Description: The family of this 117-nucleotide RNA from Arthrobacter sp. RIT-PI-e is "SAM (S-adenosyl methionine) riboswitch aptamer". It scores 112 bits against the family's covariance model.
RNA sequence: GGUCAUGAGUGCCAGCACGGAGCCCCGGCUUGCUGGCCGGCAACCCUCCUUCCGCGGUGGGGUGCCCCGGGUGAGGACCAGGUCCGGUGUCGCGACGACGCCGGUCAAGCGCGGGUU
Numbered sequence: 001g002g003u004c005a006u007g008a009g010u011g012c013c014a015g016c017a018c019g020g021a022g023c024c025c026c027g028g029c030u031u032g033c034u035g036g037c038c039g040g041c042a043a044c045c046c047u048c049c050u051u052c053c054g055c056g057g058u059g060g061g062g063u064g065c066c067c068c069g070g071g072u073g074a075g076g077a078c079c080a081g082g083u084c085c086g087g088u089g090u091c092g093c094g095a096c097g098a099c100g101c102c103g104g105u106c107a108a109g110c111g112c113g114g115g116u117u
Stems, first nucleotide, its partner, number of pairs: 001079004009038001011037006021030002039066003044062003048057002082106001084104008